[Rfam]
Rfam assigns this 126-nucleotide RNA sequence from Phocoena sinus to the family "Small nucleolar RNA SNORA40". Rfam classes the family as an H/ACA-box small nucleolar RNA. Rfam's curators write: The snoRNA ACA 40 belongs to the H/ACA family of snoRNAs and guides the pseudouridylation of 28S rRNA subunit at position U4565. NB This family has a high threshold value to exclude a large number of closely related sequences that do not appear to have conserved H and ACA boxes, and may be pseudogenes. The organism belongs to Phocoena, within Eukaryota. Pairs were carried over by alignment from the consensus structure, which was predicted with RNAalifold.
RNA sequence: AGCACUUGUGUUUGUUUUUGUUUAAUUUUUGGACAAAGACUUCUAGAUAGGUGUAAAAAUAAAUCCUCAUUUGCAACAAGAACUCAUUGUUCAGUAUGAGUUUUGAUACAGGUAAAAAGGAACAUG
Numbered sequence: 001a002g003c004a005c006u007u008g009u010g011u012u013u014g015u016u017u018u019u020g021u022u023u024a025a026u027u028u029u030u031g032g033a034c035a036a037a038g039a040c041u042u043c044u045a046g047a048u049a050g051g052u053g054u055a056a057a058a059a060u061a062a063a064u065c066c067u068c069a070u071u072u073g074c075a076a077c078a079a080g081a082a083c084u085c086a087u088u089g090u091u092c093a094g095u096a097u098g099a100g101u102u103u104u105g106a107u108a109c110a111g112g113u114a115a116a117a118a119g120g121a122a123c124a125u126g
Stems, first nucleotide, its partner, number of pairs: 002054008011045001014040008026031001064122001066120002070116004079104009